Rfam assigns this 89-nucleotide sequence from Gymnodraco acuticeps to the family "Vault RNA".
RNA sequence: ACCUUUGCACUAGCUCAGUGGUUACUUUGAACGACGUUUGUUCUCCGUCCCUUCGUGGGAUCGAACCACGGGCGCCCUCCAGUGUUUUC
Numbered sequence: 001a002c003c004u005u006u007g008c009a010c011u012a013g014c015u016c017a018g019u020g021g022u023u024a025c026u027u028u029g030a031a032c033g034a035c036g037u038u039u040g041u042u043c044u045c046c047g048u049c050c051c052u053u054c055g056u057g058g059g060a061u062c063g064a065a066c067c068a069c070g071g072g073c074g075c076c077c078u079c080c081a082g083u084g085u086u087u088u089c
Base pairs, nucleotide, nucleotide: 002084004082005081007079013073014072015071016070018069019068020067021066026065027064028063029062030061
For this family Rfam cites "Evolution of Vault RNAs" (Stadler et al., Mol Biol Evol, 2009). Taxonomically the source falls in Gymnodraco (Eukaryota, Actinopteri, Eurypterygia, Eupercaria). A search with the family's covariance model found it, with a score of 40 bits. About the family: This family of RNAs are found as part of the enigmatic vault ribonucleoprotein complex. The complex consists of a major vault protein (MVP), two minor vault proteins (VPARP and TEP1), and several small untranslated RNA molecules. It has been suggested that the vault complex is involved in drug resistance.